[Rfam]
RNA sequence: UGAGGUCACAAGUUUGAGGCCACAGCAGAAGCACUCAUAGCGUGGCCAGUCAGGUUCUAAUGAAUCUGUGAAAUCUACU
Numbered sequence: 001u002g003a004g005g006u007c008a009c010a011a012g013u014u015u016g017a018g019g020c021c022a023c024a025g026c027a028g029a030a031g032c033a034c035u036c037a038u039a040g041c042g043u044g045g046c047c048a049g050u051c052a053g054g055u056u057c058u059a060a061u062g063a064a065u066c067u068g069u070g071a072a073a074u075c076u077a078c079u
Stems, first nucleotide, its partner, number of pairs: 018047004024079002027076003031043002051068007
RNA: Mammalian CPEB3 ribozyme